Overview
Shown here is a 148-nucleotide sequence from Kouleothrix aurantiaca, a member of the family "Group II catalytic intron D1-D4-7". Pairs were carried over by alignment from the consensus structure.
RNA sequence: CCUGCUGUCCCAUCAGCAGUAUGCUAGGAGGUACUGCGGCAAGGUAACGCGCCGUGGAAAGCCCUCUGACAAUGUACCCACAGUCAUUUGACUGGCACCAGCACCGUGAGGGAAUGGUGUAUCUGUCAGCGCCACGACGGAGCGUGGC
Number, nucleotide and partner (000 for none) at each position: 001c000002c019003u018004g017005c016006u015007g014008u000009c000010c000011c000012a000013u000014c007015a006016g005017c004018a003019g002020u000021a000022u000023g000024c000025u000026a000027g000028g066029a065030g064031g063032u000033a000034c057035u056036g055037c054038g053039g052040c051041a000042a000043g048044g000045u000046a000047a000048c043049g000050c000051g040052c039053c038054g037055u036056g035057g034058a000059a000060a000061g000062c000063c031064c030065u029066c028067u000068g000069a000070c000071a000072a000073u000074g000075u000076a000077c000078c000079c000080a000081c094082a093083g092084u091085c090086a000087u000088u000089u000090g085091a084092c083093u082094g081095g120096c119097a118098c117099c000100a000101g000102c000103a000104c111105c110106g000107u000108g000109a000110g105111g104112g000113a000114a000115u000116g000117g098118u097119g096120u095121a000122u141123c140124u139125g138126u137127c136128a000129g000130c000131g000132c000133c000134a000135c000136g127137a126138c125139g124140g123141a122142g000143c000144g000145u000146g000147g000148c000

A search with the family's covariance model found it, with a score of 84 bits. Group II introns are found in rRNA, tRNA and mRNA of organelles in fungi, plants and protists, and also in mRNA in bacteria.